[Rfam]
RNA sequence: AGGAGCAAUAAUAAACCUCUUGAUUUAUCAAGAGGUUUGGUAUUGCUCUCUUAU
Numbered sequence: 001a002g003g004a005g006c007a008a009u010a011a012u013a014a015a016c017c018u019c020u021u022g023a024u025u026u027a028u029c030a031a032g033a034g035g036u037u038u039g040g041u042a043u044u045g046c047u048c049u050c051u052u053a054u
Base pairs, nucleotide, nucleotide: 002049003048004047005046006045007044008043009042010041014037015036017034018033019032020031021030022029
The family of this 54-nucleotide sequence from Elaeagnus angustifolia is "Plastid-psbA-4 3UTR RNA". Rfam classes the family as a cis-regulatory element. The literature on the family includes a 2023 paper in Plant Commun by Richter et al., "Retrograde signaling in plants: A critical review focusing on the GUN pathway and beyond". From the family's description: Plastid psbA-4 is a non-coding RNA (ncRNA) present in plastids. It was identified in inverted repeat sequences in the 3 prime untranslate region (3UTR) of photosystem II quinone-binding protein (psbA). Lineage of the source: Eukaryota > Embryophyta > eudicotyledons > Rosales > Elaeagnus. The family is grouped with related families in Rfam's "Plastid-psbA 3UTR RNA clan".